RNA: Glycine riboswitch aptamer
Organism: Mycobacterium sp. 1164966.3
RNA sequence: CGCGCUUGCGCGGGAGAGUUCCAUGACCGCCAGUCAUGGACGCCGAAGGAGCAACACCUCUCCGUCAACCUCUCAGGCACCCGGACCGCGUAAGACAA
Numbered sequence: 001c002g003c004g005c006u007u008g009c010g011c012g013g014g015a016g017a018g019u020u021c022c023a024u025g026a027c028c029g030c031c032a033g034u035c036a037u038g039g040a041c042g043c044c045g046a047a048g049g050a051g052c053a054a055c056a057c058c059u060c061u062c063c064g065u066c067a068a069c070c071u072c073u074c075a076g077g078c079a080c081c082c083g084g085a086c087c088g089c090g091u092a093a094g095a096c097a098a
Stems, first nucleotide, its partner, number of pairs: 006093008020040006042078003045074002049072003056065002